[Rfam]
RNA sequence: GGGGCUGGUCGAAAGACCCUGGUCCACUGAGACGGCGUGGGGAUCCCGC
Numbered sequence: 001g002g003g004g005c006u007g008g009u010c011g012a013a014a015g016a017c018c019c020u021g022g023u024c025c026a027c028u029g030a031g032a033c034g035g036c037g038u039g040g041g042g043a044u045c046c047c048g049c
Stems, first nucleotide, its partner, number of pairs: 002025005007018004

A member of the RNA family "DUF3800-XI RNA", 49 nucleotides long.
Actinobacteria, Firmicutes, Proteobacteria, Spirochaetes (1 example).
The sequence is in the family's curated seed alignment.
It is annotated as a small RNA.